[Rfam]
RNA sequence: GCCACAUGAUGUGAUUUAGAUGGCAUAAGCGCUCUGUGCGAUGAUGACCACUUAUCUAUCACCCGAGACUGAUGGCU
Numbered sequence: 001g002c003c004a005c006a007u008g009a010u011g012u013g014a015u016u017u018a019g020a021u022g023g024c025a026u027a028a029g030c031g032c033u034c035u036g037u038g039c040g041a042u043g044a045u046g047a048c049c050a051c052u053u054a055u056c057u058a059u060c061a062c063c064c065g066a067g068a069c070u071g072a073u074g075g076c077u
Stems, first nucleotide, its partner, number of pairs: 001076004029039004
RNA: Small nucleolar RNA SNORD83
Organism: Silurus meridionalis